[Rfam]
Nucleotides: 139
Stems, first nucleotide, its partner, number of pairs: 001139005
Number, partner (000 for none) and nucleotide at each position: 001139a002138g003137g004136g005135c006000a007000g008000u009000g010000a011000u012000g013000a014000g015000a016000g017000g018000c019000g020000c021000a022000g023000g024000g025000g026000u027000a028000c029000g030000g031000a032000c033000c034000u035000c036000a037000g038000c039000u040000g041000a042000u043000g044000a045000u046000g047000g048000g049000a050000g051000c052000u053000g054000a055000a056000u057000g058000u059000u060000g061000g062000u063000g064000u065000u066000u067000u068000c069000a070000a071000u072000c073000c074000a075000g076000a077000u078000c079000a080000g081000c082000a083000g084000g085000c086000a087000u088000g089000u090000g091000g092000u093000c094000a095000g096000c097000u098000g099000a100000c101000u102000g103000g104000a105000g106000g107000g108000c109000a110000c111000c112000a113000g114000c115000a116000u117000g118000a119000a120000a121000g122000u123000c124000g125000c126000c127000u128000u129000u130000a131000c132000u133000g134000a135005g136004c137003c138002c139001u